[Rfam]
RNA sequence: CGAGCUCGCCAGACAGUCGCCGCCGGUUGAUCCGGGGGAGGAAAGUCCGGGCUCCGCAGGGCAAGGUGCCAGGUAACGCCUGGGCGGCGUGAGCCGACGGAAAGUGCAACAGAAAGUAUACCGCCUAAGCGCUUUCGGGCGCCGGUAAGGUUGAAAUGGUGCGGUAAGAGCGCACCGCGUGGCUGGCAACAGUCCACGGCGAUGGUAAACCCCACCUGGAGCAAGACCAAAUAGGAAUCCAAUGGCGUGGCCCGCGCUGGAUUCGGGUAGGUUGCUUGAGGCCUGUGGUGACGCAGGCCCUAGAUGAAUGACUGUCCAAGACAGAACCCGGCUUAUCGGCGAGCUCGCCUC
Dot-bracket structure: ((((((((((((((((((.((.((((.....)))).))....[[[.[[[[[((((...[[[[.((((((((((.....)))))(((((....)))).)((...((((.............(((((...(((((....))))).)))..)).......((((((.......))))))(((((((((....))).))))).)....))..)))))))))))))...((((......((((((...(((((.]]]]))))))))))).....))))......((((((((....))))))))..........)))))))..........]]]]]]]].).))))))))))....

The family of this 351-nucleotide RNA from Marinobacter nauticus is "Bacterial RNase P class A".
Rfam classes the family as a ribozyme.
Rfam's curators put it in the seed alignment.